mir-184 microRNA precursor family: an 85-nucleotide RNA sequence from Triplophysa tibetana. The source organism's lineage runs through Eukaryota, Opisthokonta, Eumetazoa, Vertebrata and Triplophysa. On this family, see Chen et al., Genes Dev 2005: "The developmental miRNA profiles of zebrafish as determined by small RNA cloning".

RNA sequence: UCGACUACAUUUCCUUAUCACUUUUUCAGCCCAGCUAUUCAUUUGCUAUCCGUUGGACGGAGAACUGAUAAGGGCAUGUGGCCGA
Numbered sequence: 001u002c003g004a005c006u007a008c009a010u011u012u013c014c015u016u017a018u019c020a021c022u023u024u025u026u027c028a029g030c031c032c033a034g035c036u037a038u039u040c041a042u043u044u045g046c047u048a049u050c051c052g053u054u055g056g057a058c059g060g061a062g063a064a065c066u067g068a069u070a071a072g073g074g075c076a077u078g079u080g081g082c083c084g085a
Stems, first nucleotide, its partner, number of pairs: 012074009022064006030056002
Gene Ontology terms of the family: RISC complex and gene silencing by miRNA.